[Rfam]
RNA sequence: CCCAGGGCGGCGCCCUGGGCUAUCGUCCUUCGGCCCUUCAGGCCG
Numbered sequence: 001c002c003c004a005g006g007g008c009g010g011c012g013c014c015c016u017g018g019g020c021u022a023u024c025g026u027c028c029u030u031c032g033g034c035c036c037u038u039c040a041g042g043c044c045g
Stems, first nucleotide, its partner, number of pairs: 001019008032044004
Shown here is a 45-nucleotide RNA from Botrimarina colliarenosi, a member of the family "Acido-Lenti-1 RNA". Rfam classes the family as a small RNA. The base pairs follow the family's consensus structure, which is taken from published work. The match comes from Rfam's covariance-model search (37 bits).